[Rfam]
This 86-nucleotide sequence from Ferrimonas marina belongs to the Rfam family "c-di-GMP-I riboswitch aptamer". From the family's description: GEMM was predicted in a large-scale screen for bacterial structured RNA regulatory elements. The source organism's lineage runs through Bacteria, Gammaproteobacteria, Alteromonadales, Ferrimonadaceae and Ferrimonas. The family's consensus secondary structure is taken from published work.
RNA sequence: AUGUUGCGCUGCCAAACCAGUUGUGAGGCUGGGACGGAAAGCCACGGGUCUCCAACCGAUGAAAAGGAGAUAGCCGGGUUGCACAA
Number, nucleotide and partner (000 for none) at each position: 001a000002u000003g000004u000005u000006g000007c000008g000009c000010u000011g000012c037013c036014a000015a000016a000017c032018c031019a030020g029021u028022u027023g000024u000025g000026a000027g022028g021029c020030u019031g018032g017033g000034a000035c000036g013037g012038a000039a000040a080041g079042c078043c077044a000045c076046g075047g074048g071049u070050c069051u068052c067053c066054a000055a000056c000057c000058g000059a000060u000061g000062a000063a000064a000065a000066g053067g052068a051069g050070a049071u048072a000073g000074c047075c046076g045077g043078g042079u041080u040081g000082c000083a000084c000085a000086a000